[Rfam]
RNA sequence: ACCGCACAAAUAUCACGUUCCUUGCUUCCAUGGGCCGCGGUUGACCCUGACAGGAGGCUGAAUAAUCCGUAAGGAGCAAUUCUGUA
Numbered sequence: 001a002c003c004g005c006a007c008a009a010a011u012a013u014c015a016c017g018u019u020c021c022u023u024g025c026u027u028c029c030a031u032g033g034g035c036c037g038c039g040g041u042u043g044a045c046c047c048u049g050a051c052a053g054g055a056g057g058c059u060g061a062a063u064a065a066u067c068c069g070u071a072a073g074g075a076g077c078a079a080u081u082c083u084g085u086a
Stems, first nucleotide, its partner, number of pairs: 017077007024058006032047003
Rfam assigns this 86-nucleotide sequence from Sodalis ligni to the family "RpsF leader". Conserved and widely distributed to many bacterial species RNA structure. It precedes operon containing rpsF, which encodes ribosomal protein S6. The motif also precedes operon containing rpsR, which encodes ribosomal protein S18. The RNA was shown to interact with S6:S18 protein dimer in vitro. It was shown that RpsF leader regulates gene expression in response to the S6:S18 complex, contributing to the regulation of ribosomal protein levels.